This 72-nucleotide RNA from Nicotiana attenuata belongs to the Rfam family "MIR6151 microRNA precursor family". Its family is annotated with miRNA-mediated post-transcriptional gene silencing and RISC complex in the Gene Ontology. The family has 9 seed sequences and 930 matches in Rfam 15.1.
RNA sequence: AUUCGCUAAAUGAGUGUGAGGCGUUGGAUUGAUUUCGUUCAAUCCGAGCCCCACAUUCAUUAAGGGACUCGU
Dot-bracket structure: ...(.((.((((((((((.(((.(((((((((......)))))))))))).)))))))))).)).)......
Numbered sequence: 001a002u003u004c005g006c007u008a009a010a011u012g013a014g015u016g017u018g019a020g021g022c023g024u025u026g027g028a029u030u031g032a033u034u035u036c037g038u039u040c041a042a043u044c045c046g047a048g049c050c051c052c053a054c055a056u057u058c059a060u061u062a063a064g065g066g067a068c069u070c071g072u
Stems, first nucleotide, its partner, number of pairs: 004066001006064002009061010020050003024047009
The base pairs follow the family's consensus structure, which was predicted with RNAalifold. Taxonomically the source falls in Nicotiana (Eukaryota, Viridiplantae, Euphyllophyta, Nicotianoideae).